Background
Shown here is a 115-nucleotide RNA sequence from Hemibagrus wyckioides, a member of the family "U5 spliceosomal RNA". The family has 180 seed sequences and 28,527 matches in Rfam 15.1. A search with the family's covariance model found it, with a score of 41 bits. Pairs were carried over by alignment from the consensus structure, which is taken from published work. Its family is annotated with U5 snRNP and spliceosomal tri-snRNP complex assembly in the Gene Ontology. The family's RNA type in Rfam is spliceosomal small nuclear RNA. NCBI's taxonomy places the organism under Eukaryota, Teleostomi, Siluriformes, Bagridae, Hemibagrus.
RNA sequence: UAGCUCUGGUUUCUCUUAAGUCAUGUGCAAAUUUUUCACUUUUUACUAAAGAUUUUUGGAGAGAGGGACAUCAAUGAGUUUGAUGUUUUUUUAUGAGUGGUGUUCUGGCAAAGCU
Numbered sequence: 001u002a003g004c005u006c007u008g009g010u011u012u013c014u015c016u017u018a019a020g021u022c023a024u025g026u027g028c029a030a031a032u033u034u035u036u037c038a039c040u041u042u043u044u045a046c047u048a049a050a051g052a053u054u055u056u057u058g059g060a061g062a063g064a065g066g067g068a069c070a071u072c073a074a075u076g077a078g079u080u081u082g083a084u085g086u087u088u089u090u091u092u093a094u095g096a097g098u099g100g101u102g103u104u105c106u107g108g109c110a111a112a113g114c115u
Stems, first nucleotide, its partner, number of pairs: 003079004009069009029055008102114003